[Rfam]
RNA sequence: CUGCAGUCAAUUAAGCCGACUGUGCUUUUUUCCUCAUGGGGCUGAAUGUGCAAUGGCUGCAAACAGUAUUCUCCUCAGUAGUGUAUGCAGCCUGUUGCCCAUAUGGGUUGCCCUAAAGGGACCUUGGAGACAGCC
Numbered sequence: 001c002u003g004c005a006g007u008c009a010a011u012u013a014a015g016c017c018g019a020c021u022g023u024g025c026u027u028u029u030u031u032c033c034u035c036a037u038g039g040g041g042c043u044g045a046a047u048g049u050g051c052a053a054u055g056g057c058u059g060c061a062a063a064c065a066g067u068a069u070u071c072u073c074c075u076c077a078g079u080a081g082u083g084u085a086u087g088c089a090g091c092c093u094g095u096u097g098c099c100c101a102u103a104u105g106g107g108u109u110g111c112c113c114u115a116a117a118g119g120g121a122c123c124u125u126g127g128a129g130a131c132a133g134c135c
Stems, first nucleotide, its partner, number of pairs: 002052004019047001021045001025041004078122002088110006

Small nucleolar RNA SNORA70: a 135-nucleotide RNA sequence from Camelus dromedarius.
Rfam's curators write: snoRNA U70 seems to be exclusive to mammals and is a member of the H/ACA class of snoRNA which contain H (ANANNA) and ACA box motifs. H/ACA box snoRNAs are involved in the conversion of uridines to pseudouridines (5-ribosyluracil) a constituent of structural RNAs (transfer, ribosomal, small nuclear, and small nucleolar).
Rfam 15.1 lists 5,173 matches to the family in 383 species.
Taxonomically the source falls in Camelus (Eukaryota, Metazoa, Bilateria, Chordata).
The family's consensus secondary structure was predicted with PFOLD.